[Rfam]
Nucleotides: 070
Stems, first nucleotide, its partner, number of pairs: 001056008011021002027046005037069001039067002
Number, partner (000 for none) and nucleotide at each position: 001056c002055g003054c004053u005052g006051g007050c008049c009000u010000a011021g012020g013000a014000u015000g016000g017000c018000c019000c020012c021011c022000g023000a024000a025000a026000a027046g028045g029044c030043g031042g032000u033000u034000u035000c036000a037069c038000c039067u040066u041000c042031c043030c044029g045028c046027c047000c048000u049008g050007g051006c052005c053004a054003g055002c056001g057000c058000c059000c060000c061000c062000c063000c064000u065000c066040g067039a068000a069037g070000g

The family of this 70-nucleotide sequence from Thiorhodovibrio frisius is "int-alpA RNA". Pairs were carried over by alignment from the consensus structure, which is taken from published work. By type it is a small RNA. The organism belongs to Thiorhodovibrio, within Bacteria. Rfam's curators write: Acidobacteria (1 example), Planctomycetes (1 example), Proteobacteria.